[Rfam]
RNA sequence: GCCUUAUCAAGAGUGACAGAGGGGACAGGCCCUGUGAAGUCCGGCAACCUGCAAAGCGGCAGCUUUGUAAGGUGCCAAAUCCUGCGGGUUAAGCCGAGAGAUGAGGA
Dot-bracket structure: .(((((((....(.(((...(((..[[[[)))......))))((((.((((((((........)))))).))))))...(]]]](((......)))..)))))))).
Numbered sequence: 001g002c003c004u005u006a007u008c009a010a011g012a013g014u015g016a017c018a019g020a021g022g023g024g025a026c027a028g029g030c031c032c033u034g035u036g037a038a039g040u041c042c043g044g045c046a047a048c049c050u051g052c053a054a055a056g057c058g059g060c061a062g063c064u065u066u067g068u069a070a071g072g073u074g075c076c077a078a079a080u081c082c083u084g085c086g087g088g089u090u091a092a093g094c095c096g097a098g099a100g101a102u103g104a105g106g107a
Stems, first nucleotide, its partner, number of pairs: 002106007013042001015041003021032003026084004043076004048072002050069006080099001085096003

A member of the RNA family "SAM riboswitch aptamer (S box leader)" from Clostridium sp. CAG:169, 107 nucleotides long. Gene Ontology term of the family: regulation of gene expression.